[Rfam]
A member of the RNA family "ZMP/ZTP riboswitch aptamer (pfl RNA motif)" from Ktedonospora formicarum, 90 nucleotides long. Pairs were carried over by alignment from the consensus structure, which is taken from published work. Its family is annotated with one-carbon metabolic process and regulation of purine nucleotide biosynthetic process in the Gene Ontology.
RNA sequence: AUGUUCGUGGGUAACUGGCGAUCACAGUGGAAUAACCACGGGGAAGCUCGCGAAUAGAGGAAGAGACAGUCGCUCGCCUGGGCUGGCGCA
Numbered sequence: 001a002u003g004u005u006c007g008u009g010g011g012u013a014a015c016u017g018g019c020g021a022u023c024a025c026a027g028u029g030g031a032a033u034a035a036c037c038a039c040g041g042g043g044a045a046g047c048u049c050g051c052g053a054a055u056a057g058a059g060g061a062a063g064a065g066a067c068a069g070u071c072g073c074u075c076g077c078c079u080g081g082g083c084u085g086g087c088g089c090a
Stems, first nucleotide, its partner, number of pairs: 003055010015043002017078005027039004067085005

A search with the family's covariance model found it, with a score of 58 bits.